About this RNA:
A member of the RNA family "Glycine riboswitch aptamer" from Leucobacter ruminantium, 92 nucleotides long. This family represents the bacterial glycine riboswitch. Taxonomically the source falls in Leucobacter (Bacteria, Actinomycetota, Actinomycetes, Microbacteriaceae). Its Rfam clan is "Glycine riboswitch clan".
RNA sequence: CAAGCUGCAGCGGGAGAGCCCAGGCCAGACCUGGCGCCGUAGGAGCAAACCCUCCCCGGGAAUCUCUCAGGCAUCCGUACCGCCGCAGCACG
Numbered sequence: 001c002a003a004g005c006u007g008c009a010g011c012g013g014g015a016g017a018g019c020c021c022a023g024g025c026c027a028g029a030c031c032u033g034g035c036g037c038c039g040u041a042g043g044a045g046c047a048a049a050c051c052c053u054c055c056c057c058g059g060g061a062a063u064c065u066c067u068c069a070g071g072c073a074u075c076c077g078u079a080c081c082g083c084c085g086c087a088g089c090a091c092g
Stems, first nucleotide, its partner, number of pairs: 006087003010083004020034004036072003039068001043066003050058001